RNA: mir-124 microRNA precursor family
RNA sequence: UUCUCCUGGUAUCCACUGCAGGCCUAUAUGUUAUUUGACCAUAAGGCACGCGGUGAAUGCCAAGAGCG
Dot-bracket structure: ..(((...((((.(((.((...(((.((((.........)))))))...)).))).))))...)))..
Numbered sequence: 001u002u003c004u005c006c007u008g009g010u011a012u013c014c015a016c017u018g019c020a021g022g023c024c025u026a027u028a029u030g031u032u033a034u035u036u037g038a039c040c041a042u043a044a045g046g047c048a049c050g051c052g053g054u055g056a057a058u059g060c061c062a063a064g065a066g067c068g
Stems, first nucleotide, its partner, number of pairs: 003066003009060004014055003018051002023046003027043004